[Rfam]
RNA: mir-548 microRNA precursor family
Organism: Pongo abelii
RNA sequence: UUCUAGGUUGGUGCCAAAGUAAUUGUGGGUUUUGCCAUUAAAAGUAAUGACAAGACCCACAAUUACUUUGGCACCAACCUAAUA
Numbered sequence: 001u002u003c004u005a006g007g008u009u010g011g012u013g014c015c016a017a018a019g020u021a022a023u024u025g026u027g028g029g030u031u032u033u034g035c036c037a038u039u040a041a042a043a044g045u046a047a048u049g050a051c052a053a054g055a056c057c058c059a060c061a062a063u064u065a066c067u068u069u070g071g072c073a074c075c076a077a078c079c080u081a082a083u084a
Base pairs, nucleotide, nucleotide: 001084004081005080006079007078008077009076010075011074012073013072014071015070016069017068018067019066020065021064022063023062024061025060026059027058028057029056030055031054032053033052034051036049037048038047039046040045